[Rfam]
RNA sequence: UCCGCAUUCCCAGGUAAACCAUGGUAUCCUACAGAAUAACCCUUGGUUACACUUAUAUGGGGGUCUGA
Dot-bracket structure: ((.(.((((((..((((.(.(.(((.(...).......))).).).......))))..))))))).))
The record is a 68-nucleotide RNA sequence from Vombatus ursinus, which matches "MAT2A 3'UTR stem loop E" in Rfam. The base pairs follow the family's consensus structure, which is taken from published work. For this family Rfam cites "New families of human regulatory RNA structures identified by comparative analysis of vertebrate genomes" (Parker et al., Genome Res, 2011).